Fluoride riboswitch aptamer (crcB RNA motif): a 62-nucleotide RNA sequence from Thermanaeromonas toyohensis. It scores 43 bits against the family's covariance model. The family's consensus secondary structure is taken from published work. NCBI's taxonomy places the organism under Bacteria, Bacillota, Clostridia, Neomoorellales, Thermanaeromonas toyohensis.
RNA sequence: UAUAAAAGUGGCGAUGGAGCUCGCCUAAUGCUCAGGUUUGAGCUAAUGGCUCCUACCGUAAU
Dot-bracket structure: .........[[[[..((((((]]]]....((((......))))....)))))).........